[Rfam]
RNA sequence: GUUAGCGGAUUAAAUAGAUGCUGUAGUCCGCGCCGUUCAGACAAUGAAUGGCUGGAAAAUCGGGUGAAUUGCAGGAAAAUCCUUUAGAGGCAAAGCUGCGACAACGUGACUGGAAACGGUGAGCGUGAACGCUUUAAAAAACGCUUUGCAUUGGACAAUCUGCAGCCAAGCGUCAUUGGGCAAAGGUAAUGGCGAAGGUUCAACGACUAGAGAGUGAGUCCCAACAAUAAACUCUCAUAAGCGCCCGACCCCUAUUGCAGAAUAGGGUGAUGAUAUAGUCUAGUCCGACUGCGCAGCAGU
Dot-bracket structure: ....((((((((...........)))))))).....(......)...............[[[[.[[...((((((....(((......................................................................)))...))))))((....(...(((.......)))...)......))...(.(((((................................]].]]]].(((((((....)))))))........))))))......((((.....))))
The family of this 300-nucleotide sequence from Cytobacillus horneckiae is "Group I catalytic intron". The base pairs follow the family's consensus structure, which is taken from published work. The literature on the family includes a 1990 paper in Annu Rev Biochem by Cech, "Self-splicing of group I introns". Taxonomically the source falls in Cytobacillus (Bacteria, Bacillota, Caryophanales, Bacillaceae).